[Rfam]
RNA sequence: GAAUGCGAGUUGGCACAGGCGCUGCAUUGUCUUGUGCAGAUCAUUCAUAACGCGUAGCCCUCAACGAUGAAGGCUGCGCCUCCCGAUAGAACGGGACCGGACAAAGGCGUCCCCGUCAGGCAACUGGCGGGACGCC
Numbered sequence: 001g002a003a004u005g006c007g008a009g010u011u012g013g014c015a016c017a018g019g020c021g022c023u024g025c026a027u028u029g030u031c032u033u034g035u036g037c038a039g040a041u042c043a044u045u046c047a048u049a050a051c052g053c054g055u056a057g058c059c060c061u062c063a064a065c066g067a068u069g070a071a072g073g074c075u076g077c078g079c080c081u082c083c084c085g086a087u088a089g090a091a092c093g094g095g096a097c098c099g100g101a102c103a104a105a106g107g108c109g110u111c112c113c114c115g116u117c118a119g120g121c122a123a124c125u126g127g128c129g130g131g132a133c134g135c136c
Stems, first nucleotide, its partner, number of pairs: 010104003013025003052079005058073002061070002081096005106136007114129006
A member of the RNA family "Pseudomonas sRNA P11" from Pseudomonas savastanoi, 136 nucleotides long. The literature on the family includes a 2006 paper in Nucleic Acids Res by Livny et al., "Identification of 17 Pseudomonas aeruginosa sRNAs and prediction of sRNA-encoding genes in 10 diverse pathogens using the bioinformatic tool sRNAPredict2". This small RNA (sRNA) was computationally identified in the genome of the opportunistic pathogen Pseudomonas aeruginosa and its expression verified by northern blot analysis. P11 is located between a putative threonine protein kinase and putative nitrate reductase and appears to be conserved in several Pseudomonas species. P11 has a predicted Rho independent terminator at the 3'end but the function of P11 is unknown.